RNA: Molybdenum/Tungsten riboswitch aptamer (Moco RNA motif)
Organism: Andreesenella acetica
RNA sequence: UACCUGUCAAAUUUUCGAGUGAAAUAAUCUAAGGUUUUUUAACUAAGAUUUUUUACCAAUGGGUAAAUAAAGAAAUUUAUUUGCCUCCCACUUCGGAAAGGAAAUUUGUCUUAACAAAU
Numbered sequence: 001u002a003c004c005u006g007u008c009a010a011a012u013u014u015u016c017g018a019g020u021g022a023a024a025u026a027a028u029c030u031a032a033g034g035u036u037u038u039u040u041a042a043c044u045a046a047g048a049u050u051u052u053u054u055a056c057c058a059a060u061g062g063g064u065a066a067a068u069a070a071a072g073a074a075a076u077u078u079a080u081u082u083g084c085c086u087c088c089c090a091c092u093u094c095g096g097a098a099a100g101g102a103a104a105u106u107u108g109u110c111u112u113a114a115c116a117a118a119u
Base pairs, nucleotide, nucleotide: 006110011105012104013103014102015101016100019056020055021054022053023052024051026050027049028048029047033044034043035042036041061086062085063084064083065082066081067080068079069078070077071076087096088095
Dot-bracket structure: .....(....((((((..((((((.((((...((((....))))..))))))))))....(((((((((((....)))))))))))((......))...))))))....).........